[Rfam]
RNA sequence: ACUAGUCCAAUCUAAUUCUGCAUCAUGGUUUAUUUAUGUAGUCUCGCUUUUGGACCAGAUCAAACUCCAAAUCUCUUAUUAUCCUUGUGCUAGUGACCACUUAACUGUCCUAUGCACACGAGAAACGUAAAAGAACACUU
Number, nucleotide and partner (000 for none) at each position: 001a000002c000003u000004a000005g056006u054007c053008c052009a051010a000011u000012c000013u000014a000015a000016u000017u000018c041019u040020g039021c038022a037023u036024c000025a034026u032027g031028g000029u000030u000031u027032a026033u000034u025035u000036a023037u022038g021039u020040a019041g018042u000043c000044u000045c000046g000047c000048u000049u000050u000051u009052g008053g007054a006055c000056c005057a000058g000059a000060u000061c000062a000063a000064a000065c000066u000067c000068c000069a000070a000071a000072u134073c133074u132075c000076u130077u129078a128079u127080u000081a000082u000083c000084c122085u121086u120087g119088u118089g117090c000091u000092a000093g000094u000095g000096a000097c000098c000099a000100c000101u000102u000103a000104a000105c000106u000107g000108u000109c000110c000111u000112a000113u000114g000115c000116a000117c089118a088119c087120g086121a085122g084123a000124a000125a000126c000127g079128u078129a077130a076131a000132a074133g073134a072135a000136c000137a000138c000139u000140u000

The record is a 140-nucleotide sequence from Drosophila melanogaster, which matches "Small nucleolar RNA psi28S-1192" in Rfam. psi28S-1192 is a member of the H/ACA class of snoRNA. This family is responsible for guiding the modification of uridine 1192 to pseudouridine in Drosophila 28S rRNA. It is annotated as an H/ACA-box small nucleolar RNA. NCBI's taxonomy places the organism under Eukaryota, Pterygota, Acalyptratae, Drosophilidae, Sophophora. Pairs were carried over by alignment from the consensus structure, which was predicted with ILM. The sequence is in the family's curated seed alignment.